[Rfam]
RNA sequence: UGCGACACCCAUCAAAGGAGCUGUUAUUCAUCUAGGGACAACCUUACCAUAUUUCGAAUUC
Numbered sequence: 001u002g003c004g005a006c007a008c009c010c011a012u013c014a015a016a017g018g019a020g021c022u023g024u025u026a027u028u029c030a031u032c033u034a035g036g037g038a039c040a041a042c043c044u045u046a047c048c049a050u051a052u053u054u055c056g057a058a059u060u061c
Base pairs, nucleotide, nucleotide: 017045018044020042022040023039024038025037027035